[Rfam]
Nucleotides: 586
Base pairs, nucleotide, nucleotide: 001477002476003474004473005472007471008470009469010468011467012466013465015461016460019425020424021423022422023421024318026316027315028314029313030312031311032310033309034307035306040055041054042053043052064302065301066300067299068298069297070296077126078125079123080122081121082120083119086103087102088101089100090099091098092097105118107116108115129291130290132289133288134287135286138285139284140280141279142278143276145274146273150189151188152187153186154185155184156165157164158163168181169180170179171178195268196267197266198265200236201235202234203233204232205231206230210225211224214223215222239259240258242256243255244254245253246252322377323376324375325374326373327372328371334365335364336363339358340357344353345352346351384415389410390409391408392407393406394405395404431453432452433451434450435449436448437447480585482582485578486577490572491571492570493569495567496566497565500562501561502560503559504558505557506556507555508554509553510552511551516547517546518545519544520543521542523541524540525539526538529536530535
Number, partner (000 for none) and nucleotide at each position: 001477u002476g003474a004473c005472g006000g007471g008470g009469a010468c011467c012466c013465g014000c015461a016460c017000a018000a019425g020424c021423g022422g023421u024318g025000g026316a027315u028314u029313a030312u031311g032310u033309g034307g035306a036000u037000u038000a039000a040055u041054u042053c043052g044000a045000u046000g047000c048000a049000a050000c051000g052043c053042g054041a055040a056000a057000a058000a059000c060000c061000u062000u063000a064302c065301c066300u067299a068298c069297c070296c071000u072000u073000g074000a075000c076000a077126u078125g079123u080122c081121a082120g083119a084000a085000a086103g087102a088101u089100c090099g091098c092097a093000g094000a095000g096000a097092u098091g099090u100089g101088a102087u103086u104000g105118u106000g107116c108115c109000c110000g111000a112000a113000a114000g115108g116107g117000a118105a119083u120082c121081u122080g123079a124000a125078c126077a127000c128000a129291g130290g131000u132289g133288c134287u135286g136000c137000a138285u139284g140280g141279c142278u143276g144000u145274c146273g147000u148000c149000a150189g151188c152187u153186c154185g155184u156165g157164u158163c159000g160000u161000g162000a163158g164157a165156u166000g167000u168181u169180g170179g171178g172000u173000u174000a175000a176000g177000u178171c179170c180169c181168g182000c183000a184155a185154c186153g187152a188151g189150c190000g191000c192000a193000a194000c195268c196267c197266u198265u199000g200236u201235c202234a203233u204232u205231a206230a207000u208000u209000g210225c211224c212000a213000u214223c215222a216000u217000u218000u219000a220000g221000u222215u223214g224211g225210g226000c227000a228000c229000u230206u231205u232204a233203a234202u235201g236200a237000g238000a239259c240258u241000g242256c243255c244254g245253g246252u247000g248000a249000u250000a251000a252246a253245c254244c255243g256242g257000a258240g259239g260000a261000a262000g263000g264000u265198g266197g267196g268195g269000a270000u271000g272000a273146c274145g275000u276143c277000a278142a279141g280140u281000c282000c283000u284139c285138a286135u287134g288133g289132c290130c291129c292000u293000u294000a295000u296070g297069g298068g299067u300066a301065g302064g303000g304000c305000u306035u307034c308000a309033c310032a311031c312030g313029u314028a315027a316026u317000a318024c319000a320000a321000u322377g323376g324375u325374c326373g327372g328371u329000a330000c331000a332000g333000a334365g335364g336363g337000u338000u339358g340357c341000c342000a343000a344353c345352c346351c347000g348000c349000g350000a351346g352345g353344g354000g355000g356000a357340g358339c359000u360000a361000a362000u363336c364335u365334c366000a367000g368000a369000a370000a371328g372327c373326c374325g375324a376323u377322c378000g379000u380000a381000g382000u383000c384415c385000g386000g387000a388000u389410u390409g391408g392407a393406g394405u395404c396000u397000g398000c399000a400000a401000c402000u403000c404395g405394a406393c407392u408391c409390c410389a411000u412000g413000a414000a415384g416000u417000c418000g419000g420000a421023a422022u423021c424020g425019c426000u427000a428000g429000u430000a431453a432452u433451c434450g435449c436448g437447g438000a439000u440000c441000a442000g443000c444000a445000u446000g447437u448436c449435g450434c451433g452432g453431u454000g455000a456000a457000u458000a459000c460016g461015u462000u463000c464000c465013c466012g467011g468010g469009u470008c471007u472005u473004g474003u475000a476002c477001a478000c479000a480585c481000c482582g483000c484000c485578c486577g487000u488000c489000a490572c491571a492570c493569c494000a495567u496566g497565g498000g499000a500562g501561u502560g503559g504558a505557a506556u507555c508554u509553g510552g511551c512000a513000g514000a515000a516547g517546u518545a519544g520543g521542u522000a523541g524540c525539c526538u527000a528000a529536c530535c531000g532000c533000a534000a535530g536529g537000a538526g539525g540524g541523c542521g543520c544519u545518u546517a547516c548000c549000a550000c551511g552510c553509u554508g555507g556506g557505u558504u559503u560502c561501a562500u563000g564000a565497c566496u567495g568000g569493g570492g571491u572490g573000a574000a575000g576000u577486c578485g579000u580000a581000a582482c583000a584000a585480g586000g
Bacterial small subunit ribosomal RNA: a 586-nucleotide part of an RNA from Candidatus Gallionella acididurans.
NCBI's taxonomy places the organism under Bacteria, Pseudomonadota, Nitrosomonadales, Gallionellaceae, Gallionella.
Rfam 15.1 lists 42,628 matches to the family in 10,626 species.